[Rfam]
RNA sequence: ACUGUUUUUCCUGGGGUUGCACUACUGUCCAGUGAGCAUGUAGUGAAGCCAGUACUACGAACACCUAAAUAACACAUUCCUAUCAACUAGAGCUUUGCUUUACCUUGGUGCAAAUUUUUUGGGGGG
Numbered sequence: 001a002c003u004g005u006u007u008u009u010c011c012u013g014g015g016g017u018u019g020c021a022c023u024a025c026u027g028u029c030c031a032g033u034g035a036g037c038a039u040g041u042a043g044u045g046a047a048g049c050c051a052g053u054a055c056u057a058c059g060a061a062c063a064c065c066u067a068a069a070u071a072a073c074a075c076a077u078u079c080c081u082a083u084c085a086a087c088u089a090g091a092g093c094u095u096u097g098c099u100u101u102a103c104c105u106u107g108g109u110g111c112a113a114a115u116u117u118u119u120u121g122g123g124g125g126g
Base pairs, nucleotide, nucleotide: 006014007013019058021056024053025052026051027050029048036044037043081110082109083108084107085106088102089101090100091099092098093097
RNA: U4atac minor spliceosomal RNA